Rfam assigns this 407-nucleotide RNA sequence from Roseovarius nubinhibens to the family "Bacterial RNase P class A". It is annotated as a ribozyme. Its family is annotated with tRNA processing, ribonuclease P activity and dimeric ribonuclease P complex in the Gene Ontology. It is one of the family's seed sequences.
RNA sequence: GCGGAGGGGCGGAUGGCCGCGGGGUCUGGCAACAGGCCGCGAGGAAAGUCCGGACUCCACAAGGCAACGGUGCCGGGUAACGCCCGGCCGGGGCAACCCGAGGGAAAGCGCCACAGAGAACAGACUGCUCCGGCAUGCCGGAGUGAGGGUGAAACGGUGGGGUAAGAGCCCACCGGGGGGCUGGUAACAGUCCCCGCAUGGCAAGCCCCACCGGGAGCAAUGCCGAAUAGGGAUCGCGCGCGGGGCCGGUCGGGCAACCGAUACCGCCCGCAGGCCGCCUUGGCCCAGCAGAUCCGGGUUGGCAGCUAGAGGCCGCAUGGCAACAUGUGGCCAAGAUGAAUGGUCAUCUCGGGCAGCGUCUUUGGCGCUGUCUAUGACAGAAUCCGGCUUAUAGCCCCUCCGCGCAU
Numbered sequence: 001g002c003g004g005a006g007g008g009g010c011g012g013a014u015g016g017c018c019g020c021g022g023g024g025u026c027u028g029g030c031a032a033c034a035g036g037c038c039g040c041g042a043g044g045a046a047a048g049u050c051c052g053g054a055c056u057c058c059a060c061a062a063g064g065c066a067a068c069g070g071u072g073c074c075g076g077g078u079a080a081c082g083c084c085c086g087g088c089c090g091g092g093g094c095a096a097c098c099c100g101a102g103g104g105a106a107a108g109c110g111c112c113a114c115a116g117a118g119a120a121c122a123g124a125c126u127g128c129u130c131c132g133g134c135a136u137g138c139c140g141g142a143g144u145g146a147g148g149g150u151g152a153a154a155c156g157g158u159g160g161g162g163u164a165a166g167a168g169c170c171c172a173c174c175g176g177g178g179g180g181c182u183g184g185u186a187a188c189a190g191u192c193c194c195c196g197c198a199u200g201g202c203a204a205g206c207c208c209c210a211c212c213g214g215g216a217g218c219a220a221u222g223c224c225g226a227a228u229a230g231g232g233a234u235c236g237c238g239c240g241c242g243g244g245g246c247c248g249g250u251c252g253g254g255c256a257a258c259c260g261a262u263a264c265c266g267c268c269c270g271c272a273g274g275c276c277g278c279c280u281u282g283g284c285c286c287a288g289c290a291g292a293u294c295c296g297g298g299u300u301g302g303c304a305g306c307u308a309g310a311g312g313c314c315g316c317a318u319g320g321c322a323a324c325a326u327g328u329g330g331c332c333a334a335g336a337u338g339a340a341u342g343g344u345c346a347u348c349u350c351g352g353g354c355a356g357c358g359u360c361u362u363u364g365g366c367g368c369u370g371u372c373u374a375u376g377a378c379a380g381a382a383u384c385c386g387g388c389u390u391a392u393a394g395c396c397c398c399u400c401c402g403c404g405c406a407u
Stems, first nucleotide, its partner, number of pairs: 001403010011392001012348007020041002023038006046390003050387005055217004063281002068213005073087005088102001089100004103208002108206002110202003125148002127144007156174006175197001176195008221304004231295005273285004312331008